[Rfam]
RNA: Bacteroidete tryptophan peptide leader RNA
RNA sequence: UUUGUAGCAAACAAAAUCAAAUGCACAACAUUUUAAACAAUACUUGGUGGUGGAGCAACUUACGUCAGAACGUCGUGAGCUAAGACCCUGUUAAGUAUUUUUAAAACCAAAAUACAAAAGGCUUGUC
Numbered sequence: 001u002u003u004g005u006a007g008c009a010a011a012c013a014a015a016a017u018c019a020a021a022u023g024c025a026c027a028a029c030a031u032u033u034u035a036a037a038c039a040a041u042a043c044u045u046g047g048u049g050g051u052g053g054a055g056c057a058a059c060u061u062a063c064g065u066c067a068g069a070a071c072g073u074c075g076u077g078a079g080c081u082a083a084g085a086c087c088c089u090g091u092u093a094a095g096u097a098u099u100u101u102u103a104a105a106a107c108c109a110a111a112a113u114a115c116a117a118a119a120g121g122c123u124u125g126u127c
Stems, first nucleotide, its partner, number of pairs: 036102002040098008049089002052086001056084001061079001062073003